MIR168 microRNA precursor family: a 137-nucleotide sequence from Capsella rubella. Rfam links the family to the GO terms RISC complex and miRNA-mediated post-transcriptional gene silencing. The literature on the family includes a 2002 paper in Genes Dev by Reinhart et al., "MicroRNAs in plants".
RNA sequence: UCACGGUCGGGCUCGGAUUCGCUUGGUGCAGGUCGGGAACCAAUUUGGCUGACGUGAGUCGUCUCUUUAUUGGUUUUGUGUCAGCAGAGGAUUGGAUCCCGCCUUGCAUCAACUGAAUCGGAGCCCUCGACGUGAAU
Numbered sequence: 001u002c003a004c005g006g007u008c009g010g011g012c013u014c015g016g017a018u019u020c021g022c023u024u025g026g027u028g029c030a031g032g033u034c035g036g037g038a039a040c041c042a043a044u045u046u047g048g049c050u051g052a053c054g055u056g057a058g059u060c061g062u063c064u065c066u067u068u069a070u071u072g073g074u075u076u077u078g079u080g081u082c083a084g085c086a087g088a089g090g091a092u093u094g095g096a097u098c099c100c101g102c103c104u105u106g107c108a109u110c111a112a113c114u115g116a117a118u119c120g121g122a123g124c125c126c127u128c129g130a131c132g133u134g135a136a137u
Stems, first nucleotide, its partner, number of pairs: 013122002017118004023112010034101005040095007